A member of the RNA family "c-di-GMP-I riboswitch aptamer" from Alicyclobacillus sp. SO9, 95 nucleotides long.
[Rfam]
RNA sequence: AUUGAUAAACGGCAAAAGUAUCGGAAGGUACUGACGCAAAACUAUAGGGACUAACUCAGGUAAUGUCGUACCUGAUAUGUCAGCCAGUUGCUCAU
Number, nucleotide and partner (000 for none) at each position: 001a000002u000003u000004g000005a000006u000007a000008a000009a000010c000011g000012g037013c036014a000015a000016a000017a032018g031019u030020a029021u028022c027023g000024g000025a000026a000027g022028g021029u020030a019031c018032u017033g000034a000035c000036g013037c012038a000039a000040a089041a088042c087043u086044a000045u000046a000047g085048g084049g081050a080051c079052u000053a000054a000055c000056u075057c074058a073059g072060g071061u070062a069063a000064u000065g000066u000067c000068g000069u062070a061071c060072c059073u058074g057075a056076u000077a000078u000079g051080u050081c049082a000083g000084c048085c047086a043087g042088u041089u040090g000091c000092u000093c000094a000095u000
Notes: It scores 67 bits against the family's covariance model.